[Rfam]
RNA sequence: AAACGUUCACUUCGCUUUUGCGGGGCGCAGCUCGAUCCAAGCCAUGGAACGGGGGCUUGGG
Number, nucleotide and partner (000 for none) at each position: 001a000002a000003a000004c051005g050006u049007u048008c047009a000010c025011u024012u023013c022014g021015c000016u000017u000018u000019u000020g000021c014022g013023g012024g011025g010026c000027g000028c000029a000030g000031c000032u000033c000034g000035a000036u061037c060038c059039a058040a057041g056042c054043c053044a000045u000046g000047g008048a007049a006050c005051g004052g000053g043054g042055g000056c041057u040058u039059g038060g037061g036
A member of the RNA family "Glutamine-II riboswitch aptamer", 61 nucleotides long. The base pairs follow the family's consensus structure, which is taken from published work. Rfam's curators put it in the seed alignment. Gene Ontology term of the family: glutamine binding.